RNA sequence: GGGCGCACGGUGGAUGCCUGGGCAUCAGGAGCCGAUGAAGGACGUGGGAGGCCGCGAGAGGCCUCGGGGAGCUGCCAACCGAGCUGUGAUCCGAGGAUGUCCGAAUGGGGUAACCCGGCACCCGUCAUGGGGUGUCACCCGUAUCUGAAUGCAUAGGGUACGGGGGGGAACGCGGGGAAGUGAAACAUCUCAGUACCCGCAGGAAGAGAAAACAACCGUGAUUCCGUGAGUAGUGGCGAGCGAAAGCGGAGGAGGCUAAACCUCGGUCGUGUCAAGCCGGCGGGCGUUGCGGCGGGGGUGUUGUGGGGUGCGGUCGUGUGGGUUCUGCCGGACCCGCGAGGUCGUGCUGUGGUGUUAGCGGAAGACUGCUGGGAAGGGUCGCCGGAGUGGGUGAGAGCCCCGUACGUGAAAACACCGCAGCCGGGCUGGAUCGUGUUUCCCCGAGUAGCAGCGAGCUCGUGGAAUUUGCUGUGAAUCUGCCGGGACCACCCGGUAAGCCUAAAUACUUCCUGAUGACCGAUAGCGGACGAGUACCGUGAGGGAAAGGUGAAAAGUACCCCGGGAGGGGAGUGAAACAGUACCUGAAACCGUGUGCCUACA
Numbered sequence: 001g002g003g004c005g006c007a008c009g010g011u012g013g014a015u016g017c018c019u020g021g022g023c024a025u026c027a028g029g030a031g032c033c034g035a036u037g038a039a040g041g042a043c044g045u046g047g048g049a050g051g052c053c054g055c056g057a058g059a060g061g062c063c064u065c066g067g068g069g070a071g072c073u074g075c076c077a078a079c080c081g082a083g084c085u086g087u088g089a090u091c092c093g094a095g096g097a098u099g100u101c102c103g104a105a106u107g108g109g110g111u112a113a114c115c116c117g118g119c120a121c122c123c124g125u126c127a128u129g130g131g132g133u134g135u136c137a138c139c140c141g142u143a144u145c146u147g148a149a150u151g152c153a154u155a156g157g158g159u160a161c162g163g164g165g166g167g168g169a170a171c172g173c174g175g176g177g178a179a180g181u182g183a184a185a186c187a188u189c190u191c192a193g194u195a196c197c198c199g200c201a202g203g204a205a206g207a208g209a210a211a212a213c214a215a216c217c218g219u220g221a222u223u224c225c226g227u228g229a230g231u232a233g234u235g236g237c238g239a240g241c242g243a244a245a246g247c248g249g250a251g252g253a254g255g256c257u258a259a260a261c262c263u264c265g266g267u268c269g270u271g272u273c274a275a276g277c278c279g280g281c282g283g284g285c286g287u288u289g290c291g292g293c294g295g296g297g298g299u300g301u302u303g304u305g306g307g308g309u310g311c312g313g314u315c316g317u318g319u320g321g322g323u324u325c326u327g328c329c330g331g332a333c334c335c336g337c338g339a340g341g342u343c344g345u346g347c348u349g350u351g352g353u354g355u356u357a358g359c360g361g362a363a364g365a366c367u368g369c370u371g372g373g374a375a376g377g378g379u380c381g382c383c384g385g386a387g388u389g390g391g392u393g394a395g396a397g398c399c400c401c402g403u404a405c406g407u408g409a410a411a412a413c414a415c416c417g418c419a420g421c422c423g424g425g426c427u428g429g430a431u432c433g434u435g436u437u438u439c440c441c442c443g444a445g446u447a448g449c450a451g452c453g454a455g456c457u458c459g460u461g462g463a464a465u466u467u468g469c470u471g472u473g474a475a476u477c478u479g480c481c482g483g484g485a486c487c488a489c490c491c492g493g494u495a496a497g498c499c500u501a502a503a504u505a506c507u508u509c510c511u512g513a514u515g516a517c518c519g520a521u522a523g524c525g526g527a528c529g530a531g532u533a534c535c536g537u538g539a540g541g542g543a544a545a546g547g548u549g550a551a552a553a554g555u556a557c558c559c560c561g562g563g564a565g566g567g568g569a570g571u572g573a574a575a576c577a578g579u580a581c582c583u584g585a586a587a588c589c590g591u592g593u594g595c596c597u598a599c600a
Stems, first nucleotide, its partner, number of pairs: 001597010016582001017547002021518002023515007030507002032167002040102003043056003062096007071084003107116003117136007138164009171202001172200005182189002212219002222503001223250005233241002253500004261298004266293006305442003309435005346421011358407003364380004369376001383387001389401003448472008479494005534541002557568004
RNA: Bacterial large subunit ribosomal RNA, nucleotides 15 to 614
Organism: Pseudonocardia asaccharolytica